[Rfam]
Source information:
Rfam assigns this 101-nucleotide RNA from Notothenia coriiceps to the family "MIR158 microRNA precursor family". Its family is annotated with RISC complex and miRNA-mediated post-transcriptional gene silencing in the Gene Ontology. Pairs were carried over by alignment from the consensus structure, which was predicted with RNAalifold. A reference for the family is Reinhart et al. (2002), "MicroRNAs in plants", Genes Dev.

Nucleotides: 101
Base pairs, nucleotide, nucleotide: 003098004097005096006095007094008093009092010091012089014087015086016085018083020081021080022079023078024077025076026075027074028073029072031070032069033068034067036065037064038063039062040061042059043058044057045056046055047054048053
Number, partner (000 for none) and nucleotide at each position: 001000a002000a003098u004097a005096a006095c007094c008093a009092u010091u011000u012089c013000u014087c015086u016085c017000a018083a019000a020081u021080a022079u023078u024077g025076u026075u027074c028073a029072c030000a031070a032069a033068u034067c035000u036065g037064a038063a039062a040061a041000a042059a043058u044057c045056u046055g047054u048053g049000a050000u051000a052000g053048c054047a055046c056045a057044g058043a059042u060000u061040u062039u063038u064037u065036c066000a067034g068033a069032u070031u071000u072029g073028u074027g075026a076025a077024c078023a079022a080021u081020a082000u083018u084000u085016g086015a087014g088000a089012g090000a091010a092009a093008u094007g095006g096005u097004u098003a099000u100000u101000u